[Rfam]
Nucleotides: 125
Base pairs, nucleotide, nucleotide: 003054004053005052006051007050008049012044013043014042017040018039019038020037025032026031065121067119068118069117070116071115073111074110075109078107079106081104082103083102084101085100086097088095089094
Number, partner (000 for none) and nucleotide at each position: 001000g002000u003054g004053c005052u006051c007050a008049u009000c010000g011000u012044g013043g014042c015000u016000c017040g018039g019038u020037c021000c022000u023000u024000u025032c026031c027000a028000u029000g030000u031026g032025g033000u034000c035000c036000c037020g038019a039018c040017c041000u042014g043013c044012c045000c046000u047000c048000a049008g050007u051006g052005a053004g054003c055000a056000a057000g058000a059000g060000a061000a062000a063000g064000a065121g066000g067119a068118c069117u070116g071115g072000u073111u074110u075109g076000g077000g078107g079106g080000c081104g082103u083102c084101c085100c086097g087000u088095c089094c090000a091000a092000g093000u094089g095088g096000u097086c098000a099000u100085g101084g102083g103082a104081u105000a106079c107078c108000a109075u110074g111073g112000u113000u114000u115071u116070c117069a118068g119067u120000a121065c122000a123000a124000c125000a